[Rfam]
Nucleotides: 157
Base pairs, nucleotide, nucleotide: 003065004064005063006062007061010059011058017053018052019051020050022047025043026042078150079149080148081147083145087140088139090137091136092135093134094133100128101127102126
Number, partner (000 for none) and nucleotide at each position: 001000c002000u003065g004064c005063a006062c007061g008000u009000a010059g011058c012000c013000u014000c015000c016000c017053g018052g019051g020050c021000g022047c023000a024000u025043c026042u027000g028000a029000u030000u031000a032000u033000u034000u035000c036000u037000c038000a039000u040000g041000a042026a043025g044000u045000u046000a047022g048000c049000a050020g051019c052018c053017c054000c055000a056000a057000a058011g059010c060000u061007c062006g063005u064004g065003c066000u067000a068000u069000a070000c071000a072000c073000u074000u075000g076000u077000c078150g079149c080148c081147g082000c083145u084000a085000a086000g087140u088139g089000u090137u091136g092135c093134a094133g095000u096000u097000a098000u099000a100128g101127c102126c103000c104000a105000u106000u107000u108000u109000g110000u111000a112000c113000c114000u115000u116000c117000u118000u119000u120000u121000u122000c123000c124000a125000u126102g127101g128100u129000u130000u131000a132000u133094c134093u135092g136091u137090g138000u139088c140087a141000a142000a143000u144000c145083a146000a147081c148080g149079g150078c151000u152000a153000a154000a155000u156000a157000u
Annotation: The record is a 157-nucleotide RNA sequence from Anisodus acutangulus, which matches "small nucleolar RNA snoR134" in Rfam. Taxonomically the source falls in Anisodus (Eukaryota, Euphyllophyta, Magnoliopsida, Solanaceae). Gene Ontology terms of the family: RNA processing and nucleolus. The family's consensus secondary structure was predicted with RNAalifold.